The family of this 66-nucleotide sequence from Azomonas macrocytogenes is "Pseudomonas sRNA P26". This small RNA (sRNA) was computationally identified in the genome of the opportunistic pathogen Pseudomonas aeruginosa and its expression verified by northern blot analysis. The source organism's lineage runs through Bacteria, Pseudomonadati, Pseudomonadota, Pseudomonadales and Azomonas. For this family Rfam cites "Identification of 17 Pseudomonas aeruginosa sRNAs and prediction of sRNA-encoding genes in 10 diverse pathogens using the bioinformatic tool sRNAPredict2" (Livny et al., Nucleic Acids Res, 2006).

RNA sequence: CUUUGUACCAAUACAGCCAAAGCAGUCUGCAAAUGGCUGGUGGCUGGUGGCUUUUGCCACCGGCCU
Numbered sequence: 001c002u003u004u005g006u007a008c009c010a011a012u013a014c015a016g017c018c019a020a021a022g023c024a025g026u027c028u029g030c031a032a033a034u035g036g037c038u039g040g041u042g043g044c045u046g047g048u049g050g051c052u053u054u055u056g057c058c059a060c061c062g063g064c065c066u
Stems, first nucleotide, its partner, number of pairs: 014039005022030002042065010